[Rfam]
RNA: RNase MRP
RNA sequence: AGCAACAGGGAAGAUCCGCACUUGACGUUACUGAUACAUACGAGAAUGCUUGUCAUUCAAUCCUAUUAUGAAAACGUUAGGGAAGGUCUCCAGACUAGUAGGAUCCUUUUUUAUAAAAAGGGUCUGUAUCUGUAAUGGAUACGUACAUGGUGUUGCCCUUGGCAAUGCUGCAUUUUAACUACCCUUGCAAUUACCAAGUUGUGAGUAGUAAGGGAGAAGUGAGAUGCGUAUUUACUGGUCAUAGCAAAAAGUUAUUGCGGAUACUACCUCGUAAUGUAGUUAACAGAAUGGAGACUACUCUCCCAAGUUGC
Numbered sequence: 001a002g003c004a005a006c007a008g009g010g011a012a013g014a015u016c017c018g019c020a021c022u023u024g025a026c027g028u029u030a031c032u033g034a035u036a037c038a039u040a041c042g043a044g045a046a047u048g049c050u051u052g053u054c055a056u057u058c059a060a061u062c063c064u065a066u067u068a069u070g071a072a073a074a075c076g077u078u079a080g081g082g083a084a085g086g087u088c089u090c091c092a093g094a095c096u097a098g099u100a101g102g103a104u105c106c107u108u109u110u111u112u113a114u115a116a117a118a119a120g121g122g123u124c125u126g127u128a129u130c131u132g133u134a135a136u137g138g139a140u141a142c143g144u145a146c147a148u149g150g151u152g153u154u155g156c157c158c159u160u161g162g163c164a165a166u167g168c169u170g171c172a173u174u175u176u177a178a179c180u181a182c183c184c185u186u187g188c189a190a191u192u193a194c195c196a197a198g199u200u201g202u203g204a205g206u207a208g209u210a211a212g213g214g215a216g217a218a219g220u221g222a223g224a225u226g227c228g229u230a231u232u233u234a235c236u237g238g239u240c241a242u243a244g245c246a247a248a249a250a251g252u253u254a255u256u257g258c259g260g261a262u263a264c265u266a267c268c269u270c271g272u273a274a275u276g277u278a279g280u281u282a283a284c285a286g287a288a289u290g291g292a293g294a295c296u297a298c299u300c301u302c303c304c305a306a307g308u309u310g311c
Base pairs, nucleotide, nucleotide: 002311003310004309005308006307008304009303010302011301014262015261016260017259018258019257022080023079024078025077026076027075028074044058045057046056047055048054084296085295088293089292090291091290101105106121107120108119109118110117111116164232165231166230170227171226172225173224174223175222179219180218182216191211192210193209194208263280264279265278266277267276